The family of this 209-nucleotide RNA sequence from a Bathymodiolus platifrons methanotrophic gill symbiont is "PAGEV RNA".
It is annotated as a small RNA.
RNA sequence: CCUAUUUUGGAAUCAUGAUGUUUUGGAAUAGGUCGGGACAGCGUUGCCAAUCAAGGACUUUGCUAAGGCAACCCAUAAGGCAUUUUUUGUAUAAAGUAGAAGUCGCAGACUUAAUCCGUCUUGUCUGCGGGAUUUGAAUUUUAUAAUGCAAAAAGUGGCGCGUUUGGAGCAGGGGCAGAUAUUUAUAUCUGGUAACGCGCAGGGCGUGG
Numbered sequence: 001c002c003u004a005u006u007u008u009g010g011a012a013u014c015a016u017g018a019u020g021u022u023u024u025g026g027a028a029u030a031g032g033u034c035g036g037g038a039c040a041g042c043g044u045u046g047c048c049a050a051u052c053a054a055g056g057a058c059u060u061u062g063c064u065a066a067g068g069c070a071a072c073c074c075a076u077a078a079g080g081c082a083u084u085u086u087u088u089g090u091a092u093a094a095a096g097u098a099g100a101a102g103u104c105g106c107a108g109a110c111u112u113a114a115u116c117c118g119u120c121u122u123g124u125c126u127g128c129g130g131g132a133u134u135u136g137a138a139u140u141u142u143a144u145a146a147u148g149c150a151a152a153a154a155g156u157g158g159c160g161c162g163u164u165u166g167g168a169g170c171a172g173g174g175g176c177a178g179a180u181a182u183u184u185a186u187a188u189c190u191g192g193u194a195a196c197g198c199g200c201a202g203g204g205c206g207u208g209g
Stems, first nucleotide, its partner, number of pairs: 001032007043072006059171001061169001063167001082156010158200004176191005